About this RNA:
Rfam assigns this 95-nucleotide sequence from Microbacterium faecale to the family "TPP riboswitch aptamer (THI element)". The family's consensus secondary structure is taken from published work. Taxonomically the source falls in Microbacterium (Bacteria, Bacillati, Actinomycetota, Microbacteriaceae).

RNA sequence: GCAGAAGACACGGGGUGUCCCCGCCGGGGACUGAGACCACACCCGAAGAACCUGAUCUCGUUCACACGAGCGGAGGGAUGUCGAUCAUGACGGAC
Numbered sequence: 001g002c003a004g005a006a007g008a009c010a011c012g013g014g015g016u017g018u019c020c021c022c023g024c025c026g027g028g029g030a031c032u033g034a035g036a037c038c039a040c041a042c043c044c045g046a047a048g049a050a051c052c053u054g055a056u057c058u059c060g061u062u063c064a065c066a067c068g069a070g071c072g073g074a075g076g077g078a079u080g081u082c083g084a085u086c087a088u089g090a091c092g093g094a095c
Stems, first nucleotide, its partner, number of pairs: 007082004011045004016039001017031005051076003057070004